Description
The family of this 85-nucleotide RNA sequence from Tateyamaria sp. ANG-S1 is "Singlet oxygen resistance RNA X". A search with the family's covariance model found it, with a score of 57 bits. Lineage of the source: Bacteria > Pseudomonadota > Alphaproteobacteria > Roseobacteraceae > Tateyamaria.

RNA sequence: UCGCCUAAUGAAGAGACACGGCGCUAACGCGCCAUCUUCAUACCUCCCUGUUGGACUUGGCCGAGCUUCGCGCUCGGCCUUUUUU
Numbered sequence: 001u002c003g004c005c006u007a008a009u010g011a012a013g014a015g016a017c018a019c020g021g022c023g024c025u026a027a028c029g030c031g032c033c034a035u036c037u038u039c040a041u042a043c044c045u046c047c048c049u050g051u052u053g054g055a056c057u058u059g060g061c062c063g064a065g066c067u068u069c070g071c072g073c074u075c076g077g078c079c080u081u082u083u084u085u
Stems, first nucleotide, its partner, number of pairs: 008041007059079008